[Rfam]
RNA: IS605-orfB-I RNA
RNA sequence: AACCUAUACAGAUGUAUCAACGCAAGACAGUUGAGCAUCUCCCUGUAGGAACAUGUUUUAAUAGAAACAUUAAUAAUAAGUCUUAUUGUGGAGCUUAUGCGUUGAAAUAAGAUGAGUUAAUGUGGAAUAGGUUAAUCGUAAGACCUUUAGUUGAAAAACUACAAAAUUGACCUAGAAAUAAAGAUUUCUAAAUUCUUUGUUUUUCUAGUUACGGUUCG
Numbered sequence: 001a002a003c004c005u006a007u008a009c010a011g012a013u014g015u016a017u018c019a020a021c022g023c024a025a026g027a028c029a030g031u032u033g034a035g036c037a038u039c040u041c042c043c044u045g046u047a048g049g050a051a052c053a054u055g056u057u058u059u060a061a062u063a064g065a066a067a068c069a070u071u072a073a074u075a076a077u078a079a080g081u082c083u084u085a086u087u088g089u090g091g092a093g094c095u096u097a098u099g100c101g102u103u104g105a106a107a108u109a110a111g112a113u114g115a116g117u118u119a120a121u122g123u124g125g126a127a128u129a130g131g132u133u134a135a136u137c138g139u140a141a142g143a144c145c146u147u148u149a150g151u152u153g154a155a156a157a158a159c160u161a162c163a164a165a166a167u168u169g170a171c172c173u174a175g176a177a178a179u180a181a182a183g184a185u186u187u188c189u190a191a192a193u194u195c196u197u198u199g200u201u202u203u204u205c206u207a208g209u210u211a212c213g214g215u216u217c218g
Stems, first nucleotide, its partner, number of pairs: 003049006010040006017034005022028001067123008081112007092103002129146005135215006141167001148161005172208007180200001182198002